U4 spliceosomal RNA: a 123-nucleotide RNA sequence from Enhydra lutris. The source organism's lineage runs through Eukaryota, Eumetazoa, Deuterostomia, Mustelidae and Enhydra lutris. It scores 77 bits against the family's covariance model. It is annotated as a spliceosomal small nuclear RNA. The literature on the family includes a 2000 paper in Mol Cell by Vidovic et al., "Crystal structure of the spliceosomal 15.5kD protein bound to a U4 snRNA fragment".
RNA sequence: AGCUUUGCGCACUGGCAGUAUCGUAGCCAAUGAGGUUUAUCCGAGGCGCGAUUAUUGCUAAUUGAAGCUUUUGGCCCAGUAAUCAUAUUCCCAGAAUAUAAUUAAAAGAAAUAGUCCUUACUG
Numbered sequence: 001a002g003c004u005u006u007g008c009g010c011a012c013u014g015g016c017a018g019u020a021u022c023g024u025a026g027c028c029a030a031u032g033a034g035g036u037u038u039a040u041c042c043g044a045g046g047c048g049c050g051a052u053u054a055u056u057g058c059u060a061a062u063u064g065a066a067g068c069u070u071u072u073g074g075c076c077c078a079g080u081a082a083u084c085a086u087a088u089u090c091c092c093a094g095a096a097u098a099u100a101a102u103u104a105a106a107a108g109a110a111a112u113a114g115u116c117c118u119u120a121c122u123g
Base pairs, nucleotide, nucleotide: 020052021051022050023049024048026047027046028045034042035041085099086098087097088096089095090094112123113122114121115120